[Rfam]
RNA sequence: GUGAUUCUGGUUUCAAUCCAGACCAGUUUUUCUUUAUGUUAAAUAACCUAGAAAACUGUAUCUGGAUUGAUGCUAUAGUCAG
Numbered sequence: 001g002u003g004a005u006u007c008u009g010g011u012u013u014c015a016a017u018c019c020a021g022a023c024c025a026g027u028u029u030u031u032c033u034u035u036a037u038g039u040u041a042a043a044u045a046a047c048c049u050a051g052a053a054a055a056c057u058g059u060a061u062c063u064g065g066a067u068u069g070a071u072g073c074u075a076u077a078g079u080c081a082g
Stems, first nucleotide, its partner, number of pairs: 003080004008075004013070010028055006
A member of the RNA family "mir-1422 microRNA precursor family" from Ornithorhynchus anatinus, 82 nucleotides long. The source organism's lineage runs through Eukaryota, Opisthokonta, Bilateria, Euteleostomi and Ornithorhynchus. Rfam's curators put it in the seed alignment. Rfam links the family to the GO terms RISC complex and miRNA-mediated post-transcriptional gene silencing.